[Rfam]
RNA sequence: AAGGAGCAAGAAGCCCUUUUUUGUUAUAUCAAAAGGGGGCUUCUUGCUCCUUAUC
Numbered sequence: 001a002a003g004g005a006g007c008a009a010g011a012a013g014c015c016c017u018u019u020u021u022u023g024u025u026a027u028a029u030c031a032a033a034a035g036g037g038g039g040c041u042u043c044u045u046g047c048u049c050c051u052u053a054u055c
Stems, first nucleotide, its partner, number of pairs: 001052012018035006